This 70-nucleotide RNA from Xenopus laevis belongs to the Rfam family "Small nucleolar RNA Z40". It scores 54 bits against the family's covariance model. The family's consensus secondary structure was predicted with PFOLD. Gene Ontology terms of the family: RNA processing and nucleolus. The literature on the family includes a 2003 paper in Nucleic Acids Res by Chen et al., "The high diversity of snoRNAs in plants: identification and comparative study of 120 snoRNA genes from Oryza sativa". NCBI's taxonomy places the organism under Eukaryota, Metazoa, Pipoidea, Pipidae, Xenopus.

[Rfam]
Nucleotides: 070
Stems, first nucleotide, its partner, number of pairs: 002069002005066002
Number, partner (000 for none) and nucleotide at each position: 001000c002069c003068a004000u005066g006065u007000u008000u009000u010000g011000a012000u013000g014000a015000a016000u017000g018000g019000c020000a021000a022000u023000g024000u025000u026000c027000a028000a029000c030000u031000g032000c033000u034000c035000u036000g037000a038000a039000c040000c041000a042000g043000u044000g045000a046000c047000u048000g049000a050000u051000a052000a053000a054000a055000g056000c057000c058000u059000u060000u061000c062000u063000g064000a065006a066005c067000u068003u069002g070000u